[Rfam]
RNA sequence: GGAGGUGUACCCGACCUGGUGGUCGGCCUGGUCUUCAAAACCAGUGAGGCAAGUUCAUCCUGCCUGGCGGGUUCGAUUCCCGUCCGCCUCC
Numbered sequence: 001g002g003a004g005g006u007g008u009a010c011c012c013g014a015c016c017u018g019g020u021g022g023u024c025g026g027c028c029u030g031g032u033c034u035u036c037a038a039a040a041c042c043a044g045u046g047a048g049g050c051a052a053g054u055u056c057a058u059c060c061u062g063c064c065u066g067g068c069g070g071g072u073u074c075g076a077u078u079c080c081c082g083u084c085c086g087c088c089u090c091c
Stems, first nucleotide, its partner, number of pairs: 001091007009083001011026006028044005047065005068082004
This 91-nucleotide RNA sequence from Geodermatophilus marinus belongs to the Rfam family "Selenocysteine transfer RNA". Taxonomically the source falls in Geodermatophilus (Bacteria, Actinomycetota, Geodermatophilales, Geodermatophilaceae).